The record is a 100-nucleotide RNA sequence from Bifidobacterium tissieri, which matches "TPP riboswitch aptamer (THI element)" in Rfam. A search with the family's covariance model found it, with a score of 57 bits. Taxonomically the source falls in Bifidobacterium (Bacteria, Actinomycetota, Actinomycetes, Bifidobacteriales).
RNA sequence: UGGUGUACGAACGGGAGCCGUAGGGCUGAGAGGAAGCUUCGCUUCGACCGUGGACUUGAUGCGGGUCAUGCCGCCGUAAGGAAUCGUCAUCGAUUGCGCA
Numbered sequence: 001u002g003g004u005g006u007a008c009g010a011a012c013g014g015g016a017g018c019c020g021u022a023g024g025g026c027u028g029a030g031a032g033g034a035a036g037c038u039u040c041g042c043u044u045c046g047a048c049c050g051u052g053g054a055c056u057u058g059a060u061g062c063g064g065g066u067c068a069u070g071c072c073g074c075c076g077u078a079a080g081g082a083a084u085c086g087u088c089a090u091c092g093a094u095u096g097c098g099c100a
Stems, first nucleotide, its partner, number of pairs: 007087004011051004017026003033045005055080004061074004